[Rfam]
RNA: gntR-DTE RNA
Organism: Streptomyces clavuligerus
RNA sequence: CGGGUAAGUGCCGUCCGGCGGCACACCUUGCUCGUGUGCCAGCUCUGGAGACCACCUGCGCGGGAUCAUCCCUCCCUUUUCGGGAGGUCAGCCCGUGGGGUGCCAUCUGGUGCACGGCCGCCCUGCUGGCGUCAGAGCAGCGACGAUGACGCGCCCG
Numbered sequence: 001c002g003g004g005u006a007a008g009u010g011c012c013g014u015c016c017g018g019c020g021g022c023a024c025a026c027c028u029u030g031c032u033c034g035u036g037u038g039c040c041a042g043c044u045c046u047g048g049a050g051a052c053c054a055c056c057u058g059c060g061c062g063g064g065a066u067c068a069u070c071c072c073u074c075c076c077u078u079u080u081c082g083g084g085a086g087g088u089c090a091g092c093c094c095g096u097g098g099g100g101u102g103c104c105a106u107c108u109g110g111u112g113c114a115c116g117g118c119c120g121c122c123c124u125g126c127u128g129g130c131g132u133c134a135g136a137g138c139a140g141c142g143a144c145g146a147u148g149a150c151g152c153g154c155c156c157g
Stems, first nucleotide, its partner, number of pairs: 017122006034115009046105003053102005